[Rfam]
RNA sequence: GAAAAUAAAGGGGCAAUAACGCCCUCUUGAUAGAACAAGAAAGAGUUUAUUGCUCCUUUAU
Numbered sequence: 001g002a003a004a005a006u007a008a009a010g011g012g013g014c015a016a017u018a019a020c021g022c023c024c025u026c027u028u029g030a031u032a033g034a035a036c037a038a039g040a041a042a043g044a045g046u047u048u049a050u051u052g053c054u055c056c057u058u059u060a061u
Stems, first nucleotide, its partner, number of pairs: 007059012025040005
RNA: Plastid-psbA-4 3UTR RNA